[Rfam]
RNA: ZMP/ZTP riboswitch aptamer (pfl RNA motif)
RNA sequence: UGUGCGGGUCGCGACUGGCGCAUUCAGGUGGGUCACCACCGGGGAGCGACAUCUUCUUCUCCGACUUCGGGUCGUUCGCCUGGGCCCCGGUC
Number, nucleotide and partner (000 for none) at each position: 001u000002g000003u000004g054005c000006g052007g000008g050009u049010c048011g047012c046013g000014a000015c043016u042017g080018g079019c078020g077021c000022a000023u000024u000025c000026a000027g000028g039029u038030g037031g036032g000033u000034c000035a000036c031037c030038a029039c028040c000041g000042g016043g015044g000045a000046g012047c011048g010049a009050c008051a000052u006053c000054u004055u000056c000057u000058u000059c000060u000061c000062c000063g000064a000065c000066u000067u000068c000069g087070g086071g085072u084073c083074g000075u000076u000077c020078g019079c018080c017081u000082g000083g073084g072085c071086c070087c069088c000089g000090g000091u000092c000